[Rfam]
RNA: mir-2774 microRNA precursor family
Organism: Bombyx mori
RNA sequence: AUAACAUUCGGACCGUCGGUCUACCGAGCAACUUCAUCCGCUCGGCGGAAGAUCUUCGCUUCAUCAU
Numbered sequence: 001a002u003a004a005c006a007u008u009c010g011g012a013c014c015g016u017c018g019g020u021c022u023a024c025c026g027a028g029c030a031a032c033u034u035c036a037u038c039c040g041c042u043c044g045g046c047g048g049a050a051g052a053u054c055u056u057c058g059c060u061u062c063a064u065c066a067u
Base pairs, nucleotide, nucleotide: 004064011057012056015053016052017051020049021048022047024045025044026043027042028041029040